[Rfam]
RNA: ZMP/ZTP riboswitch aptamer (pfl RNA motif)
Nucleotides: 087
Stems, first nucleotide, its partner, number of pairs: 004053001007050006015042001017075005027038004065081004
Number, partner (000 for none) and nucleotide at each position: 001000a002000g003000c004053u005000g006000a007050c008049c009048c010047u011046u012045c013000u014000g015042c016000u017075g018074a019073c020072g021071g022000a023000u024000c025000u026000u027038g028037u029036g030035g031000a032000g033000c034000a035030c036029c037028a038027c039000a040000g041000u042015g043000c044000a045012g046011a047010a048009g049008g050007g051000g052000a053004g054000a055000g056000a057000a058000g059000c060000u061000u062000u063000a064000a065081u066080g067079c068078c069000g070000a071021c072020c073019g074018u075017c076000u077000g078068g079067g080066c081065a082000g083000c084000c085000u086000u087000g